RNA sequence: UCCAGUGAUGGUAAAUAAUCUUUGAGACCUGAGAUUUGUCUUUCCAUGAUGACAAACUUUCAAGCAUGUUUUCUGAGGAU
Dot-bracket structure: (((............................(((........))..).............................))).
Numbered sequence: 001u002c003c004a005g006u007g008a009u010g011g012u013a014a015a016u017a018a019u020c021u022u023u024g025a026g027a028c029c030u031g032a033g034a035u036u037u038g039u040c041u042u043u044c045c046a047u048g049a050u051g052a053c054a055a056a057c058u059u060u061c062a063a064g065c066a067u068g069u070u071u072u073c074u075g076a077g078g079a080u
Stems, first nucleotide, its partner, number of pairs: 001079003032047001033044002